This 295-nucleotide RNA sequence from Papaver somniferum belongs to the Rfam family "Plant signal recognition particle RNA". It scores 187 bits against the family's covariance model. By type it is a non-coding RNA gene. Its family is annotated with signal recognition particle, endoplasmic reticulum targeting and SRP-dependent cotranslational protein targeting to membrane, signal sequence recognition in the Gene Ontology.

RNA sequence: GACGAGUUUAUUUAGCUUUUACACUGGGACAUUAAGAUGGUUGAACACUGGUCGGGUUUCACCCGGUAGGUGCUGGUGCGCACAAUAUGUUGACUUGCCCGCUCCAAGUUGGGAGUUGGUUGCAUUGUCCGGGCGUAGGCUUGGGCCGUGUCAUCACUAUAGCGGAGGGCACUGCGUCAGGCUGGCUUCACAGAGCAACGAACACCUCCCGCUUUCGACAGUGGAAGAAUCACGAGUCGAUGUGCCCCAGUCCCAACUCAGCCCGGUGAGCCGAGUCAGUUGAACAACCACCCUU
Numbered sequence: 001g002a003c004g005a006g007u008u009u010a011u012u013u014a015g016c017u018u019u020u021a022c023a024c025u026g027g028g029a030c031a032u033u034a035a036g037a038u039g040g041u042u043g044a045a046c047a048c049u050g051g052u053c054g055g056g057u058u059u060c061a062c063c064c065g066g067u068a069g070g071u072g073c074u075g076g077u078g079c080g081c082a083c084a085a086u087a088u089g090u091u092g093a094c095u096u097g098c099c100c101g102c103u104c105c106a107a108g109u110u111g112g113g114a115g116u117u118g119g120u121u122g123c124a125u126u127g128u129c130c131g132g133g134c135g136u137a138g139g140c141u142u143g144g145g146c147c148g149u150g151u152c153a154u155c156a157c158u159a160u161a162g163c164g165g166a167g168g169g170c171a172c173u174g175c176g177u178c179a180g181g182c183u184g185g186c187u188u189c190a191c192a193g194a195g196c197a198a199c200g201a202a203c204a205c206c207u208c209c210c211g212c213u214u215u216c217g218a219c220a221g222u223g224g225a226a227g228a229a230u231c232a233c234g235a236g237u238c239g240a241u242g243u244g245c246c247c248c249a250g251u252c253c254c255a256a257c258u259c260a261g262c263c264c265g266g267u268g269a270g271c272c273g274a275g276u277c278a279g280u281u282g283a284a285c286a287a288c289c290a291c292c293c294u295u
Stems, first nucleotide, its partner, number of pairs: 001030001003028001004018005022027001034294001036292001038290006046282002048279003052274004059269005065263003069254002072251005078246001080245003085241001090240008100227001103225004108219009117156004122151004127146008157162001164209005173202001175200003182193003